[Rfam]
RNA sequence: UGGCAACAAUGAUGACAGGAGUUUGUACCUGGAUGUGGUGGUCCCUUACUACAUGGAGACAACAGUCCCUCUAACCUGAUGUUGCCA
Numbered sequence: 001u002g003g004c005a006a007c008a009a010u011g012a013u014g015a016c017a018g019g020a021g022u023u024u025g026u027a028c029c030u031g032g033a034u035g036u037g038g039u040g041g042u043c044c045c046u047u048a049c050u051a052c053a054u055g056g057a058g059a060c061a062a063c064a065g066u067c068c069c070u071c072u073a074a075c076c077u078g079a080u081g082u083u084g085c086c087a
Base pairs, nucleotide, nucleotide: 001087002086003085004084005083006082007081

This 87-nucleotide sequence from Eolophus roseicapilla belongs to the Rfam family "Small nucleolar RNA SNORD127". The family's RNA type in Rfam is C/D-box small nucleolar RNA. The literature on the family includes a 2006 paper in Nucleic Acids Res by Yang et al., "snoSeeker: an advanced computational package for screening of guide and orphan snoRNA genes in the human genome". It scores 73 bits against the family's covariance model.